Shown here is a 53-nucleotide RNA sequence from Citreimonas salinaria, a member of the family "Guanidine-II riboswitch aptamer (mini-ykkC)". A search with the family's covariance model found it, with a score of 34 bits.
RNA sequence: AGGCAAGGACGACCUUGCCCGGUCAUGGACGGCCAGCAUGCGGGACGGCCCGA
Numbered sequence: 001a002g003g004c005a006a007g008g009a010c011g012a013c014c015u016u017g018c019c020c021g022g023u024c025a026u027g028g029a030c031g032g033c034c035a036g037c038a039u040g041c042g043g044g045a046c047g048g049c050c051c052g053a
Stems, first nucleotide, its partner, number of pairs: 002019007041052004
Dot-bracket structure: .(((((((....))))))).....................((((....)))).